Source information:
Rfam assigns this 109-nucleotide RNA from Sorghum bicolor to the family "MIR5565 microRNA precursor family". Pairs were carried over by alignment from the consensus structure, which was predicted with RNAalifold. Taxonomically the source falls in Sorghum (Eukaryota, Tracheophyta, Liliopsida, Andropogoneae).
[Rfam]
RNA sequence: GUUGUCGGACUCACGUCAAUCCACAUGUAUUGGAGUAGAUUGUGGUGGAAUUUAGUUCAAGUUCCAUACCAAUCCACACCAACACAUGUGGAUUGAUGUGAAUCCGACU
Numbered sequence: 001g002u003u004g005u006c007g008g009a010c011u012c013a014c015g016u017c018a019a020u021c022c023a024c025a026u027g028u029a030u031u032g033g034a035g036u037a038g039a040u041u042g043u044g045g046u047g048g049a050a051u052u053u054a055g056u057u058c059a060a061g062u063u064c065c066a067u068a069c070c071a072a073u074c075c076a077c078a079c080c081a082a083c084a085c086a087u088g089u090g091g092a093u094u095g096a097u098g099u100g101a102a103u104c105c106g107a108c109u
Stems, first nucleotide, its partner, number of pairs: 004108006011101004016096013030082003035077002038074005045067003